[Rfam]
RNA sequence: GGUGAGUUGGCCGAGAGGCUGAAGGCACUCGCCUGCUAAGCGAGUAUAGGGGCUAAAACCUCUAUCGAGAGUUCGAAUCUCUCACUCACCG
Numbered sequence: 001g002g003u004g005a006g007u008u009g010g011c012c013g014a015g016a017g018g019c020u021g022a023a024g025g026c027a028c029u030c031g032c033c034u035g036c037u038a039a040g041c042g043a044g045u046a047u048a049g050g051g052g053c054u055a056a057a058a059c060c061u062c063u064a065u066c067g068a069g070a071g072u073u074c075g076a077a078u079c080u081c082u083c084a085c086u087c088a089c090c091g
Base pairs, nucleotide, nucleotide: 001090002089003088004087005086006085007084010026011025012024028044029043030042031041032040067083068082069081070080071079
Notes
The family of this 91-nucleotide sequence from Fretibacterium fastidiosum is "tRNA". The family has 954 seed sequences and 5,335,975 matches in Rfam 15.1. For this family Rfam cites "The tertiary structure of tRNA and the development of the genetic code" (Hou, Trends Biochem Sci, 1993).